A member of the RNA family "Nitrogen stress-induced RNA 1" from Oxynema acuminatum, 53 nucleotides long.

[Rfam]
RNA sequence: UGGUAGAUGCACCCUGAUUGACGUUUCCCGGCUCUUUUGAGCCGGUUUUUUUU
Numbered sequence: 001u002g003g004u005a006g007a008u009g010c011a012c013c014c015u016g017a018u019u020g021a022c023g024u025u026u027c028c029c030g031g032c033u034c035u036u037u038u039g040a041g042c043c044g045g046u047u048u049u050u051u052u053u
Stems, first nucleotide, its partner, number of pairs: 002013003028045007